[Rfam]
RNA sequence: AAGUGAAAAGAUGAUUUACAGUUUCCCUAUUGGUUUGAUUGCCGCAAUGAUGGCUUUUUAUUUAACUGCCUGAUCACUU
Numbered sequence: 001a002a003g004u005g006a007a008a009a010g011a012u013g014a015u016u017u018a019c020a021g022u023u024u025c026c027c028u029a030u031u032g033g034u035u036u037g038a039u040u041g042c043c044g045c046a047a048u049g050a051u052g053g054c055u056u057u058u059u060a061u062u063u064a065a066c067u068g069c070c071u072g073a074u075c076a077c078u079u
Stems, first nucleotide, its partner, number of pairs: 002078004037057001041054003
A member of the RNA family "Small nucleolar RNA Z102/R77" from Physcomitrium patens, 79 nucleotides long.
The family is grouped with related families in Rfam's "SNORD44 clan".
Rfam classes the family as a C/D-box small nucleolar RNA.
Lineage of the source: Eukaryota > Streptophytina > Embryophyta > Funariaceae > Physcomitrium.
Its family is annotated with nucleolus and RNA processing in the Gene Ontology.